[Rfam]
RNA sequence: AUGUAUCCAAUAGGAAUUGAACCCAUGAAUUCUGAAUUAUGAGUUGGGUUCUUUUCCCAUUCAUCCAUGGAUGC
Numbered sequence: 001a002u003g004u005a006u007c008c009a010a011u012a013g014g015a016a017u018u019g020a021a022c023c024c025a026u027g028a029a030u031u032c033u034g035a036a037u038u039a040u041g042a043g044u045u046g047g048g049u050u051c052u053u054u055u056c057c058c059a060u061u062c063a064u065c066c067a068u069g070g071a072u073g074c
Base pairs, nucleotide, nucleotide: 003074004073005072006071007070008069010026011025013023014022039068040067041066043065045063046062047061048060049059
This 74-nucleotide sequence from Taxus chinensis belongs to the Rfam family "Plastid-ycf2 5UTR RNA". Pairs were carried over by alignment from the consensus structure, which was predicted with LocARNA. The match comes from Rfam's covariance-model search (69 bits). Rfam classes the family as a cis-regulatory element. Plastid ycf2 is a non-coding RNA (ncRNA) recognised in plastids.